Rfam assigns this 63-nucleotide RNA from Tichodroma muraria to the family "mir-302 microRNA precursor family". The literature on the family includes a 2004 paper in Dev Biol by Suh et al., "Human embryonic stem cells express a unique set of microRNAs". Pairs were carried over by alignment from the consensus structure, which was predicted with RNAalifold. A search with the family's covariance model found it, with a score of 60 bits.
RNA sequence: CCACAACUUAAAUGUGGAUGUGCUUGCUUUGGUUCUCAAUAAGUAAGUGCUUCCAUGUUUUAG
Numbered sequence: 001c002c003a004c005a006a007c008u009u010a011a012a013u014g015u016g017g018a019u020g021u022g023c024u025u026g027c028u029u030u031g032g033u034u035c036u037c038a039a040u041a042a043g044u045a046a047g048u049g050c051u052u053c054c055a056u057g058u059u060u061u062a063g
Base pairs, nucleotide, nucleotide: 007063008062010060011059012058013057014056015055016054017053018052020050021049022048023047024046025045026044027043028042